[Rfam]
RNA sequence: UUACUGGCAACGGUAGGGUGGGAAGGAAGCCUUAGCAAGUAUGGGGCACGUAGCGGGAGCGAACCGGGAGUGGCGCGGCAGGUGGGUAACCUUGCAAAAAGUGGGAAAGCCCAAAAGCCGGAUAACCUGCCACGUUAAAACGGACGGUGUCCCAUACAGGAAAGUU
Numbered sequence: 001u002u003a004c005u006g007g008c009a010a011c012g013g014u015a016g017g018g019u020g021g022g023a024a025g026g027a028a029g030c031c032u033u034a035g036c037a038a039g040u041a042u043g044g045g046g047c048a049c050g051u052a053g054c055g056g057g058a059g060c061g062a063a064c065c066g067g068g069a070g071u072g073g074c075g076c077g078g079c080a081g082g083u084g085g086g087u088a089a090c091c092u093u094g095c096a097a098a099a100a101g102u103g104g105g106a107a108a109g110c111c112c113a114a115a116a117g118c119c120g121g122a123u124a125a126c127c128u129g130c131c132a133c134g135u136u137a138a139a140a141c142g143g144a145c146g147g148u149g150u151c152c153c154a155u156a157c158a159g160g161a162a163a164g165u166u
Base pairs, nucleotide, nucleotide: 001016002015003014004013005012006011029166031164032163033162041155042154043153044152045151046150049146050145051144064143065142066141073135074134075133077131078130079129080128081127082126083125084112085111086110087109090105091104092103
Dot-bracket structure: ((((((....))))))............(.(((.......((((((..(((............(((......(((.(((((((((((..(((..........)))...))))............))))))).))).....))))))...))))))......))).)
Rfam assigns this 166-nucleotide RNA from Phaeodactylibacter xiamenensis to the family "Group II catalytic intron D1-D4-3". Group II introns are found in rRNA, tRNA and mRNA of organelles in fungi, plants and protists, and also in mRNA in bacteria. A reference for the family is Bonen and Vogel (2001), "The ins and outs of group II introns", Trends Genet. The pairing is the family consensus, mapped onto this sequence.